[Rfam]
A member of the RNA family "Actino-pnp RNA" from Crystallibacter crystallopoietes, 80 nucleotides long. Taxonomically the source falls in Crystallibacter (Bacteria, Actinomycetota, Micrococcales, Micrococcaceae). It is annotated as a cis-regulatory element.
RNA sequence: CGCGGUCCUCGGUAGUGAUUUCCGGGAGUGGCCGGUGCAGCAAAUGCACAGCCGCCCGGGGGUCUCGAUCGAAGACCGGG
Numbered sequence: 001c002g003c004g005g006u007c008c009u010c011g012g013u014a015g016u017g018a019u020u021u022c023c024g025g026g027a028g029u030g031g032c033c034g035g036u037g038c039a040g041c042a043a044a045u046g047c048a049c050a051g052c053c054g055c056c057c058g059g060g061g062g063u064c065u066c067g068a069u070c071g072a073a074g075a076c077c078g079g080g
Stems, first nucleotide, its partner, number of pairs: 001080001003078005009072005017064010030053002